[Rfam]
Nucleotides: 069
Base pairs, nucleotide, nucleotide: 014065016064017063018062019061020060023057024056028052029051030050031048032047033046
Number, partner (000 for none) and nucleotide at each position: 001000u002000u003000g004000u005000g006000u007000g008000u009000a010000g011000g012000a013000g014065g015000a016064a017063u018062u019061g020060a021000u022000u023057u024056u025000a026000u027000u028052u029051c030050a031048g032047u033046g034000g035000a036000a037000a038000c039000a040000a041000g042000g043000a044000a045000a046033c047032a048031c049000u050030u051029g052028a053000a054000a055000u056024a057023a058000a059000u060020u061019c062018a063017a064016u065014u066000u067000u068000a069000a

The record is a 69-nucleotide RNA, which matches "Cyano-1 RNA" in Rfam.